Source information
The family of this 223-nucleotide sequence from Pseudomonas aeruginosa is "Group II catalytic intron D1-D4-6". Its family is annotated with Group II intron splicing in the Gene Ontology. It is one of the family's seed sequences. Pairs were carried over by alignment from the consensus structure.
RNA sequence: CAAGUCCGAUACGAGAACGAAGUGGCGAAUCAUCUUGGCCCCGAGUCAUGCGUUGGACGUCGUGAGGCGGACAGCGAAGCGUUGACAGGGGAAACGACAGGCCAGCCAUUGAGCCGCGAAAUCAUAAGUCCCAGGAUGCCGACGCUAUACAGAUGAGCGGAAGGCGACACGGAGCAGGGUGUCAAUCGCAAGCCCUGUGACGAUCCCGCGCGGUCGAAGACCC
Numbered sequence: 001c002a003a004g005u006c007c008g009a010u011a012c013g014a015g016a017a018c019g020a021a022g023u024g025g026c027g028a029a030u031c032a033u034c035u036u037g038g039c040c041c042c043g044a045g046u047c048a049u050g051c052g053u054u055g056g057a058c059g060u061c062g063u064g065a066g067g068c069g070g071a072c073a074g075c076g077a078a079g080c081g082u083u084g085a086c087a088g089g090g091g092a093a094a095c096g097a098c099a100g101g102c103c104a105g106c107c108a109u110u111g112a113g114c115c116g117c118g119a120a121a122u123c124a125u126a127a128g129u130c131c132c133a134g135g136a137u138g139c140c141g142a143c144g145c146u147a148u149a150c151a152g153a154u155g156a157g158c159g160g161a162a163g164g165c166g167a168c169a170c171g172g173a174g175c176a177g178g179g180u181g182u183c184a185a186u187c188g189c190a191a192g193c194c195c196u197g198u199g200a201c202g203a204u205c206c207c208g209c210g211c212g213g214u215c216g217a218a219g220a221c222c223c
Stems, first nucleotide, its partner, number of pairs: 012037005019031002023191001025189002039091004045086004049081002051076005058069004110217001111215001113214006132208001134206004138165003143159004170202002174198007